[Rfam]
Rfam assigns this 45-nucleotide RNA from Ziziphus jujuba to the family "Plastid-rpl16 group II-D1 intron".
RNA sequence: AAAGCCUCGAGCCAACAAAUACUUAGAGGAUUGACUCAAGAACAA
Numbered sequence: 001a002a003a004g005c006c007u008c009g010a011g012c013c014a015a016c017a018a019a020u021a022c023u024u025a026g027a028g029g030a031u032u033g034a035c036u037c038a039a040g041a042a043c044a045a
Stems, first nucleotide, its partner, number of pairs: 006040002009037003013033003
It scores 43 bits against the family's covariance model. A reference for the family is Richter et al. (2023), "Retrograde signaling in plants: A critical review focusing on the GUN pathway and beyond", Plant Commun. Rfam's curators write: Plastid-rpl16 is a non-coding RNA (ncRNA) recognised in plastids. It was recognised in and intronic region of a ribosome rpl16 gene.